[Rfam]
RNA sequence: UUUGGACUACCUUGUUGGUGAAGACCUUCCUUAAGUGCUCUGAUCUGACUCUUUUUCGACUUGUGGAGACUGUCGUGACGGUGAAGUAAACCAGUCUAGUAACUGGAAAUGGAACCUCGCUUUGACUCCUCUUCUGGUUAAUCCAGGUCGAUGCUCUGAGGUCUCACGGCAAGGUGGUCUUGUA
Numbered sequence: 001u002u003u004g005g006a007c008u009a010c011c012u013u014g015u016u017g018g019u020g021a022a023g024a025c026c027u028u029c030c031u032u033a034a035g036u037g038c039u040c041u042g043a044u045c046u047g048a049c050u051c052u053u054u055u056u057c058g059a060c061u062u063g064u065g066g067a068g069a070c071u072g073u074c075g076u077g078a079c080g081g082u083g084a085a086g087u088a089a090a091c092c093a094g095u096c097u098a099g100u101a102a103c104u105g106g107a108a109a110u111g112g113a114a115c116c117u118c119g120c121u122u123u124g125a126c127u128c129c130u131c132u133u134c135u136g137g138u139u140a141a142u143c144c145a146g147g148u149c150g151a152u153g154c155u156c157u158g159a160g161g162u163c164u165c166a167c168g169g170c171a172a173g174g175u176g177g178u179c180u181u182g183u184a
Stems, first nucleotide, its partner, number of pairs: 002182001004180012018167002037154002041150006063131001065129001067127002070124001072122001075120004080116002086110002091106005
Rfam assigns this 184-nucleotide RNA from Prochlorococcus marinus to the family "6S / SsrS RNA". For this family Rfam cites "6S RNA regulates E. coli RNA polymerase activity" (Wassarman and Storz, Cell, 2000). NCBI's taxonomy places the organism under Bacteria, Bacillati, Cyanobacteriota, Prochlorococcaceae, Prochlorococcus marinus.